[Rfam]
RNA: Small nucleolar RNA snoR99
Organism: Paspalum vaginatum
RNA sequence: GUGCCUGUGGGAUGAACAGGUCCCAACAUUUACCGCCAUUUUUUUCACUUUGUCAGCUAACGGUCUUACAUUUUAGCUGAUCAUUAAGAAUGGGAAAUUU
Numbered sequence: 001g002u003g004c005c006u007g008u009g010g011g012a013u014g015a016a017c018a019g020g021u022c023c024c025a026a027c028a029u030u031u032a033c034c035g036c037c038a039u040u041u042u043u044u045u046c047a048c049u050u051u052g053u054c055a056g057c058u059a060a061c062g063g064u065c066u067u068a069c070a071u072u073u074u075a076g077c078u079g080a081u082c083a084u085u086a087a088g089a090a091u092g093g094g095a096a097a098u099u100u
Stems, first nucleotide, its partner, number of pairs: 036093005052081008